[Rfam]
RNA sequence: AUCAAAGUGAUCUAGGGUUCCGAUGGCGUGAUGAGAUGAUCUGCGUACAUGACUGGACCGAGAGAUGACGGUUCGCACGAACUACACGGCGGGAUAAAAGCCCGGGAGAU
Numbered sequence: 001a002u003c004a005a006a007g008u009g010a011u012c013u014a015g016g017g018u019u020c021c022g023a024u025g026g027c028g029u030g031a032u033g034a035g036a037u038g039a040u041c042u043g044c045g046u047a048c049a050u051g052a053c054u055g056g057a058c059c060g061a062g063a064g065a066u067g068a069c070g071g072u073u074c075g076c077a078c079g080a081a082c083u084a085c086a087c088g089g090c091g092g093g094a095u096a097a098a099a100g101c102c103c104g105g106g107a108g109a110u
Base pairs, nucleotide, nucleotide: 007069008068010066011065012064015059016058020056021055022053023050024049025048070083071082072081073080074079085105087108091103092102093101
Source information: Rfam assigns this 110-nucleotide RNA sequence from Acinetobacter marinus to the family "Guanidine-I riboswitch aptamer". The source organism's lineage runs through Bacteria, Pseudomonadati, Gammaproteobacteria, Moraxellales and Acinetobacter. Gene Ontology term of the family: regulation of gene expression.